[Rfam]
RNA sequence: AUAUAAGCAAAAGUGUACUUUUUAGAUUCAUUGAAUAACAGAUGUAUCUGAUCUAUAAUAUAGACCAGAUACAUCUGUUAUUCAAUGAAUCUAAAAAGUGUAUUUUUGCUUACAA
Numbered sequence: 001a002u003a004u005a006a007g008c009a010a011a012a013g014u015g016u017a018c019u020u021u022u023u024a025g026a027u028u029c030a031u032u033g034a035a036u037a038a039c040a041g042a043u044g045u046a047u048c049u050g051a052u053c054u055a056u057a058a059u060a061u062a063g064a065c066c067a068g069a070u071a072c073a074u075c076u077g078u079u080a081u082u083c084a085a086u087g088a089a090u091c092u093a094a095a096a097a098g099u100g101u102a103u104u105u106u107u108g109c110u111u112a113c114a115a
Stems, first nucleotide, its partner, number of pairs: 002114001004112004009107005015101011027089018049067002052064001